[Rfam]
RNA sequence: AAAGGGGCAAGUGGCCGUACAGGCCGGGGCGAUCGCCGCACCCCCCCCCCUCACUAGGCGCCUCAGCC
Number, nucleotide and partner (000 for none) at each position: 001a000002a000003a063004g062005g061006g000007g059008c058009a000010a055011g054012u053013g052014g051015c000016c000017g000018u000019a000020c000021a000022g044023g043024c000025c000026g042027g041028g037029g036030c035031g000032a000033u000034c000035g030036c029037c028038g000039c000040a000041c027042c026043c023044c022045c000046c000047c000048c000049c000050c000051u014052c013053a012054c011055u010056a000057g000058g008059c007060g000061c005062c004063u003064c000065a000066g000067c000068c000

This 68-nucleotide RNA belongs to the Rfam family "Pestivirus 3' UTR SLIII P. scrofae Atypical porcine pestivirus". The sequence is in the family's curated seed alignment. A reference for the family is Kokkonos et al. (2020), "Evolutionary selection of pestivirus variants with altered or no microRNA dependency", Nucleic Acids Res.